[Rfam]
RNA sequence: GAUAUGCGUUGAUGCGGGAGGUUGCCGCUGCUCCCAUAGGGGCGGACGGGUUUUUCCGCGGAGUAUGUCCGAUCUUAGAACCGGGCGA
Numbered sequence: 001g002a003u004a005u006g007c008g009u010u011g012a013u014g015c016g017g018g019a020g021g022u023u024g025c026c027g028c029u030g031c032u033c034c035c036a037u038a039g040g041g042g043c044g045g046a047c048g049g050g051u052u053u054u055u056c057c058g059c060g061g062a063g064u065a066u067g068u069c070c071g072a073u074c075u076u077a078g079a080a081c082c083g084g085g086c087g088a
Base pairs, nucleotide, nucleotide: 014059015058016057018056019055020054021053025049026048027047029045066087067086068085069084070083071082073080

Shown here is an 88-nucleotide RNA sequence from Subdoligranulum sp. APC924/74, a member of the family "S10-Clostridia ribosomal protein leader".
By type it is a cis-regulatory leader.
Lineage of the source: Bacteria > Bacillota > Clostridia > Oscillospiraceae > Subdoligranulum.